The record is a 268-nucleotide RNA sequence from Piscibacillus halophilus, which matches "Bacterial large signal recognition particle RNA" in Rfam.
[Rfam]
RNA sequence: CUGUGCUAGGUGGGGAGGUAGCGGUGCCCUGUAACCCACAAUCCGCUAUAGUGGGGCUGAAGCCCUAUCCAAGGUGAAGUGAUUUUAAGGUCUGCCGUAAGUGAGCAGUGUUGACAUCUGGGUCCUAUGCAACGAGAACCCGUAAACCCUGUCAGGUCCGGAAGGAAGCAGCAGUAAGCGGUCAUUCUCGUGUGUCGUAGGGUCGCCUAGAUUGAGCUGUGAUCUUACGUAACGCUUACGGGUCACUUCAUCGAAGAUAGGUGCACAG
Number, nucleotide and partner (000 for none) at each position: 001c268002u267003g266004u265005g264006c263007u000008a000009g058010g057011u056012g030013g029014g028015g027016a000017g025018g000019u023020a000021g000022c000023g019024g000025u017026g000027c015028c014029c013030u012031g000032u000033a000034a000035c055036c054037c053038a052039c051040a000041a000042u000043c000044c000045g000046c000047u000048a000049u000050a000051g039052u038053g037054g036055g035056g011057c010058u009059g000060a000061a000062g000063c000064c261065c260066u259067a258068u257069c256070c000071a000072a000073g252074g251075u250076g249077a248078a000079g246080u245081g244082a243083u242084u000085u000086u238087a237088a236089g235090g000091u000092c000093u231094g230095c000096c000097g228098u227099a226100a225101g224102u000103g000104a000105g000106c221107a218108g217109u216110g000111u000112u000113g000114a000115c000116a212117u211118c210119u209120g208121g207122g206123u205124c201125c200126u199127a198128u197129g196130c192131a191132a000133c190134g189135a188136g187137a186138a000139c000140c181141c180142g179143u178144a000145a000146a000147c000148c000149c174150u173151g172152u171153c000154a000155g000156g000157u166158c165159c164160g000161g000162a000163a000164g159165g158166a157167a000168g000169c000170a000171g152172c151173a150174g149175u000176a000177a000178g143179c142180g141181g140182u000183c000184a000185u000186u137187c136188u135189c134190g133191u131192g130193u000194g000195u000196c129197g128198u127199a126200g125201g124202g000203u000204c000205g123206c122207c121208u120209a119210g118211a117212u116213u000214g000215a000216g109217c108218u107219g000220u000221g106222a000223u000224c101225u100226u099227a098228c097229g000230u094231a093232a000233c000234g000235c089236u088237u087238a086239c000240g000241g000242g083243u082244c081245a080246c079247u000248u077249c076250a075251u074252c073253g000254a000255a000256g069257a068258u067259a066260g065261g064262u000263g006264c005265a004266c003267a002268g001
The literature on the family includes a 2002 paper in Nucleic Acids Res by Regalia et al., "Prediction of signal recognition particle RNA genes".
The signal recognition particle (SRP) is a universally conserved ribonucleoprotein involved in the co-translational targeting of proteins to membranes.
A search with the family's covariance model found it, with a score of 205 bits.
The base pairs follow the family's consensus structure, which is taken from published work.